[Rfam]
RNA sequence: AUACUUACCUGGCAGGGGAGAUACCAUGAUCAAGAAGGUGGUUCACCCAGGGCGAGGCUUGGCCAUUGCACUCCUGCCACGCUGACCCCUGCGAAUUCCCCAAAUAUUAGAAUCUCGAUGUCCUAAUUUCUGGUAGUGGGGGACUGCGUUCGCGCUCUCCCCUG
Numbered sequence: 001a002u003a004c005u006u007a008c009c010u011g012g013c014a015g016g017g018g019a020g021a022u023a024c025c026a027u028g029a030u031c032a033a034g035a036a037g038g039u040g041g042u043u044c045a046c047c048c049a050g051g052g053c054g055a056g057g058c059u060u061g062g063c064c065a066u067u068g069c070a071c072u073c074c075u076g077c078c079a080c081g082c083u084g085a086c087c088c089c090u091g092c093g094a095a096u097u098c099c100c101c102a103a104a105u106a107u108u109a110g111a112a113u114c115u116c117g118a119u120g121u122c123c124u125a126a127u128u129u130c131u132g133g134u135a136g137u138g139g140g141g142g143a144c145u146g147c148g149u150u151c152g153c154g155c156u157c158u159c160c161c162c163u164g
Stems, first nucleotide, its partner, number of pairs: 012122001015119001016048003020044002023042005049090004054086001056083003060079004092117003095113003099110001138163006146155003
Shown here is a 164-nucleotide RNA sequence from Danio rerio, a member of the family "U1 spliceosomal RNA". It is annotated as a spliceosomal small nuclear RNA. Rfam 15.1 lists 40,184 matches to the family in 1,499 species. The match comes from Rfam's covariance-model search (133 bits). Its family is annotated with mRNA 5'-splice site recognition, pre-mRNA 5'-splice site binding and U1 snRNP in the Gene Ontology. A reference for the family is Zwieb (1997), "The uRNA database", Nucleic Acids Res. The family is grouped with related families in Rfam's "U1 clan".